[Rfam]
RNA sequence: UCUUGCUUCCCUUUGGUGAUUUGGCUGUAUGAUCAACAUAUGGCACUCAUAAAGCUAGGUUACCAAAGCUAAGCGGAA
Numbered sequence: 001u002c003u004u005g006c007u008u009c010c011c012u013u014u015g016g017u018g019a020u021u022u023g024g025c026u027g028u029a030u031g032a033u034c035a036a037c038a039u040a041u042g043g044c045a046c047u048c049a050u051a052a053a054g055c056u057a058g059g060u061u062a063c064c065a066a067a068g069c070u071a072a073g074c075g076g077a078a
Stems, first nucleotide, its partner, number of pairs: 001078001003076003007072002011068016028051005

mir-9/mir-79 microRNA precursor family: a 78-nucleotide RNA from Caenorhabditis auriculariae.
The family's consensus secondary structure was predicted with RNAalifold.
Rfam links the family to the GO terms RISC complex and miRNA-mediated post-transcriptional gene silencing.